[Rfam]
Bacterial large subunit ribosomal RNA: a 387-nucleotide part of an RNA from Elusimicrobium minutum.

RNA sequence: GAUAAGGAAGGUGAGAAUCCUUCCCGCCGAAAAUCUAAGGUUUCCUUGAGCAACGUUCGUCGGCUCAGGGUCAGUCGGGCCUAAGCUCAGGCCGAAAGGCGUAGGCGAAGGACAUCAGGUUAAUAUUCCUGAACUAUAAUGUGCGCGUCAUAACUCAGGGAGGGACGCAGGAAGGUAAGCCAUCCUGGUAUAGGUAUCCAGGUUUAAAGUCGUAGGCAUUUUCUGAUAGGUAAAUCCGUCAGAUUGUUAAGUCGAAAACUGAAUACGAGCUGUAGCAAUACAGCGAAGUGGUCCAACUACACUGCCAAGAAAAACUUCGUGGGGAGUUCACAUUAUAACCGUACCGUAAACCGACACAGGUGGAUGGGGUGAGAAUCCUAAGGCGCG
Numbered sequence: 001g002a003u004a005a006g007g008a009a010g011g012u013g014a015g016a017a018u019c020c021u022u023c024c025c026g027c028c029g030a031a032a033a034u035c036u037a038a039g040g041u042u043u044c045c046u047u048g049a050g051c052a053a054c055g056u057u058c059g060u061c062g063g064c065u066c067a068g069g070g071u072c073a074g075u076c077g078g079g080c081c082u083a084a085g086c087u088c089a090g091g092c093c094g095a096a097a098g099g100c101g102u103a104g105g106c107g108a109a110g111g112a113c114a115u116c117a118g119g120u121u122a123a124u125a126u127u128c129c130u131g132a133a134c135u136a137u138a139a140u141g142u143g144c145g146c147g148u149c150a151u152a153a154c155u156c157a158g159g160g161a162g163g164g165a166c167g168c169a170g171g172a173a174g175g176u177a178a179g180c181c182a183u184c185c186u187g188g189u190a191u192a193g194g195u196a197u198c199c200a201g202g203u204u205u206a207a208a209g210u211c212g213u214a215g216g217c218a219u220u221u222u223c224u225g226a227u228a229g230g231u232a233a234a235u236c237c238g239u240c241a242g243a244u245u246g247u248u249a250a251g252u253c254g255a256a257a258a259c260u261g262a263a264u265a266c267g268a269g270c271u272g273u274a275g276c277a278a279u280a281c282a283g284c285g286a287a288g289u290g291g292u293c294c295a296a297c298u299a300c301a302c303u304g305c306c307a308a309g310a311a312a313a314a315c316u317u318c319g320u321g322g323g324g325a326g327u328u329c330a331c332a333u334u335a336u337a338a339c340c341g342u343a344c345c346g347u348a349a350a351c352c353g354a355c356a357c358a359g360g361u362g363g364a365u366g367g368g369g370u371g372a373g374a375a376u377c378c379u380a381a382g383g384c385g386c387g
Stems, first nucleotide, its partner, number of pairs: 006024006025385004033365004039345002044069002047067004054062002076341003080111002085106003089102001091100003115132005135337009145327001154323002159318004167305004174298002179292004184202005204265001208260003215253003222243006229237002269284005351360002367379003
It is one of the family's seed sequences. Lineage of the source: Bacteria > Pseudomonadati > Elusimicrobiota > Elusimicrobiaceae > Elusimicrobium minutum. The base pairs follow the family's consensus structure, which is taken from published work.